[Rfam]
RNA: Cis-regulator of HTH transcription factor
RNA sequence: CUUUUUUACGCAUAGUAGACCACCUCUAUACAUUUUAUUGUUCCUACUGAAUUAAAAACAGGUAUAGAAAAACGUGUUAUAUGGUUUAUAGGUUUAUAUUUAAUAAAAAGCACUACUAAACGCCAAUAAAAAAACCGUUAUAUGGUAGUGCUAUUUACGCUGUUAAAAUAUUGUAUAUUACUUCCAAAUGGCGGUUUGUUGGAGGUCAACGUCGCCAUGAAGUACAUCA
Numbered sequence: 001c002u003u004u005u006u007u008a009c010g011c012a013u014a015g016u017a018g019a020c021c022a023c024c025u026c027u028a029u030a031c032a033u034u035u036u037a038u039u040g041u042u043c044c045u046a047c048u049g050a051a052u053u054a055a056a057a058a059c060a061g062g063u064a065u066a067g068a069a070a071a072a073c074g075u076g077u078u079a080u081a082u083g084g085u086u087u088a089u090a091g092g093u094u095u096a097u098a099u100u101u102a103a104u105a106a107a108a109a110g111c112a113c114u115a116c117u118a119a120a121c122g123c124c125a126a127u128a129a130a131a132a133a134a135c136c137g138u139u140a141u142a143u144g145g146u147a148g149u150g151c152u153a154u155u156u157a158c159g160c161u162g163u164u165a166a167a168a169u170a171u172u173g174u175a176u177a178u179u180a181c182u183u184c185c186a187a188a189u190g191g192c193g194g195u196u197u198g199u200u201g202g203a204g205g206u207c208a209a210c211g212u213c214g215c216c217a218u219g220a221a222g223u224a225c226a227u228c229a
Base pairs, nucleotide, nucleotide: 002107003106004105007102008101014100015099016098017097028077029076030075031074033072034071035070036069038067039066040065041064043062044061045060048057078091111150112149113148114147115146116145117144118143120138121137122136188212189211190210193207194206195205196204197203